[Rfam]
Nucleotides: 455
Base pairs, nucleotide, nucleotide: 001396002395003394004393005392006391011024012023013022014021015020027135028134029133030132031131032130036122037121038120040119041118042117043116044115045114046113047112052107053105054104060100061099062098064096065095066094067093068092069091073088075086076085077084078083141165142164143163144162145161146160147159148158149157170181171180172179185363186362187361188360189359190358191357195353196352197351204350206349207348208347209346210345211344230324231323232322234321235320236319237318238317239316240315241314242313243312251308252307253306254305255304257281258280259279262276263275264274282286287302291300292299364386365385366382367381368380369379370378397450399447401445402444403443404442405441406440407439408438415434416433417432418431419430420429421428422427
Number, partner (000 for none) and nucleotide at each position: 001396c002395c003394a004393a005392u006391c007000g008000a009000a010000a011024c012023a013022u014021g015020u016000c017000g018000a019000a020015g021014c022013a023012u024011g025000a026000c027135c028134u029133c030132c031131g032130c033000c034000g035000a036122g037121g038120u039000a040119g041118u042117c043116u044115g045114u046113g047112a048000g049000g050000u051000a052107g053105a054104g055000c056000g057000a058000c059000c060100g061099a062098u063000u064096g065095g066094u067093g068092u069091g070000u071000c072000c073088g074000c075086c076085u077084c078083c079000g080000a081000g082000a083078g084077g085076a086075g087000u088073c089000g090000g091069c092068a093067c094066a095065c096064c097000u098062g099061u100060c101000a102000a103000a104054c105053u106000c107052c108000a109000a110000a111000c112047u113046u114045a115044c116043a117042g118041a119040c120038g121037c122036u123000g124000u125000u126000u127000g128000a129000c130032g131031c132030g133029g134028g135027g136000a137000u138000u139000c140000c141165g142164g143163u144162g145161c146160g147159c148158g149157g150000g151000g152000u153000a154000a155000g156000c157149c158148u159147g160146u161145g162144u163143a164142c165141c166000a167000g168000g169000a170181g171180g172179g173000g174000a175000a176000c177000a178000a179172c180171c181170c182000a183000g184000a185363g186362a187361u188360a189359g190358g191357u192000u193000a194000a195353g196352g197351u198000c199000c200000c201000c202000a203000a204350g205000u206349g207348u208347g209346g210345a211344u212000u213000a214000a215000g216000u217000g218000u219000a220000a221000u222000c223000c224000u225000c226000u227000g228000a229000a230324g231323g232322u233000g234321g235320u236319c237318u238317c239316g240315a241314g242313c243312c244000c245000u246000a247000g248000a249000c250000a251308g252307c253306c254305g255304g256000g257281a258280g259279g260000u261000g262276a263275g264274c265000u266000u267000a268000g269000a270000a271000g272000c273000a274264g275263c276262u277000a278000c279259c280258c281257u282286c283000u284000a285000a286282g287302a288000a289000a290000a291300g292299c293000g294000u295000a296000a297000c298000a299292g300291c301000u302287u303000a304255c305254c306253g307252g308251c309000c310000g311000a312243g313242g314241u315240u316239u317238g318237a319236g320235g321234c322232g323231c324230c325000c326000a327000a328000a329000a330000u331000g332000a333000u334000c335000g336000g337000g338000a339000c340000u341000c342000a343000a344211a345210u346209c347208c348207a349206c350204c351197a352196c353195c354000g355000a356000g357191a358190c359189c360188u361187g362186u363185c364386c365385g366382u367381a368380c369379c370378a371000c372000u373000c374000a375000u376000a377000c378370u379369g380368g381367u382366a383000a384000u385365c386364g387000a388000g389000u390000a391006g392005a393004u394003u395002g396001g397450c398000g399447c400000u401445c402444u403443a404442a405441u406440u407439g408438g409000a410000u411000g412000g413000a414000a415434g416433c417432a418431g419430g420429g421428g422427c423000g424000a425000g426000a427422g428421c429420u430419c431418c432417u433416g434415u435000g436000g437000a438408c439407c440406g441405a442404u443403u444402a445401g446000u447399g448000a449000c450397g451000a452000a453000a454000a455000u
The record is a 455-nucleotide part of an RNA from Haloarcula marismortui, which matches "Archaeal large subunit ribosomal RNA" in Rfam. NCBI's taxonomy places the organism under Archaea, Methanobacteriati, Halobacteriales, Haloarculaceae, Haloarcula. Rfam's curators put it in the seed alignment.